The family of this 252-nucleotide part of an RNA from Hymenobacter sp. 5317J-9 is "Bacterial large subunit ribosomal RNA".
It scores 2728 bits against the family's covariance model.

RNA sequence: GUUGGAAAUUUGACAGGACCUGUCCUUAGUACGAGAGGACCGGGAUGGACCAGCCGCUGGUGCGCCGGUUGUACCGCCAGGUGCAGCGCCGGGUAGCUACGCUGGGACGAGAUAAGCGCUGAAAGCAUCUAAGUGCGAAACUCCCCUGGAGAUGAGAUUUCCCAAUUGAAGGCCCGUCGGAGAUGACGACGUGGAUAGGCGGCAGGUGAACAACUGGAAACAGAACAGCUGAGCCGUACUAAGUGGCCGAGG
Numbered sequence: 001g002u003u004g005g006a007a008a009u010u011u012g013a014c015a016g017g018a019c020c021u022g023u024c025c026u027u028a029g030u031a032c033g034a035g036a037g038g039a040c041c042g043g044g045a046u047g048g049a050c051c052a053g054c055c056g057c058u059g060g061u062g063c064g065c066c067g068g069u070u071g072u073a074c075c076g077c078c079a080g081g082u083g084c085a086g087c088g089c090c091g092g093g094u095a096g097c098u099a100c101g102c103u104g105g106g107a108c109g110a111g112a113u114a115a116g117c118g119c120u121g122a123a124a125g126c127a128u129c130u131a132a133g134u135g136c137g138a139a140a141c142u143c144c145c146c147u148g149g150a151g152a153u154g155a156g157a158u159u160u161c162c163c164a165a166u167u168g169a170a171g172g173c174c175c176g177u178c179g180g181a182g183a184u185g186a187c188g189a190c191g192u193g194g195a196u197a198g199g200c201g202g203c204a205g206g207u208g209a210a211c212a213a214c215u216g217g218a219a220a221c222a223g224a225a226c227a228g229c230u231g232a233g234c235c236g237u238a239c240u241a242a243g244u245g246g247c248c249g250a251g252g
Base pairs, nucleotide, nucleotide: 004162005161006160007159008158009157010156011155014148015147016146017145020048021047022046023045024044025043026042050105051104052103053102054101058099059098060097065092066091067090068089069088070085071084072083073082074081075080109143110142111141116136117135118134119133120132171248172247173246174245175191176190177189178188179187196241197240198239199237200236201235202234203233205230206229214223215222216221